[Rfam]
RNA: SAM riboswitch aptamer (S box leader)
RNA sequence: CUCUUAUCCAGAGCGGCGGAGGGACUGGCCCGAUGAAGCCCGGCAACCGACUGCAUGUGCAGUAAUGGUGCCAAUUCCUACAGGAGCAGAUCCUGGAAGAUAAGAG
Numbered sequence: 001c002u003c004u005u006a007u008c009c010a011g012a013g014c015g016g017c018g019g020a021g022g023g024a025c026u027g028g029c030c031c032g033a034u035g036a037a038g039c040c041c042g043g044c045a046a047c048c049g050a051c052u053g054c055a056u057g058u059g060c061a062g063u064a065a066u067g068g069u070g071c072c073a074a075u076u077c078c079u080a081c082a083g084g085a086g087c088a089g090a091u092c093c094u095g096g097a098a099g100a101u102a103a104g105a106g
Stems, first nucleotide, its partner, number of pairs: 001106008013041001015040003021031003027078002042072004047068002050063003076098001081095005